Rfam assigns this 77-nucleotide RNA from Chionoecetes opilio to the family "HDV ribozyme from F. prausnitzii".
NCBI's taxonomy places the organism under Eukaryota, Opisthokonta, Communostraca, Majidae, Chionoecetes.
The base pairs follow the family's consensus structure, which is taken from published work.
The family has 48 seed sequences and 3,803 matches in Rfam 15.1.
RNA sequence: CCUGCUUCAAAAUCCUGCUUCCACCUCCCCGUGGUAAGCAGGGGGCAACAGAUGUAACGUCUGGCUAACCGGAAGAG
Numbered sequence: 001c002c003u004g005c006u007u008c009a010a011a012a013u014c015c016u017g018c019u020u021c022c023a024c025c026u027c028c029c030c031g032u033g034g035u036a037a038g039c040a041g042g043g044g045g046c047a048a049c050a051g052a053u054g055u056a057a058c059g060u061c062u063g064g065c066u067a068a069c070c071g072g073a074a075g076a077g
Base pairs, nucleotide, nucleotide: 001042002041003040004039005038006037007036023035024034025033049063050062051061052060053059
Dot-bracket structure: (((((((...............(((.......))))))))))......(((((.....)))))..............